[Rfam]
RNA: ZMP/ZTP riboswitch aptamer (pfl RNA motif)
Organism: Acidovorax sp. RAC01
RNA sequence: UGAGGGGUACGCGACUGGCGAUAGGCGCUAUGCCCUGCGGGCAUUGCCGCUGACGUGGAAACCGGCGAGAACCUGCUUCUUGCAAACCACUGGGGAGCGUGCCGCGAAGGCGUCAGGCCUUUGUGUUCAGCCGUUCGCCUGGGCAGCCCUU
Numbered sequence: 001u002g003a004g005g006g007g008u009a010c011g012c013g014a015c016u017g018g019c020g021a022u023a024g025g026c027g028c029u030a031u032g033c034c035c036u037g038c039g040g041g042c043a044u045u046g047c048c049g050c051u052g053a054c055g056u057g058g059a060a061a062c063c064g065g066c067g068a069g070a071a072c073c074u075g076c077u078u079c080u081u082g083c084a085a086a087c088c089a090c091u092g093g094g095g096a097g098c099g100u101g102c103c104g105c106g107a108a109g110g111c112g113u114c115a116g117g118c119c120u121u122u123g124u125g126u127u128c129a130g131c132c133g134u135u136c137g138c139c140u141g142g143g144c145a146g147c148c149c150u151u
Base pairs, nucleotide, nucleotide: 004105006103007102008101009100010099011098012097015094016093017139018138019137020136021135055090056089057088058087128146130144131143132142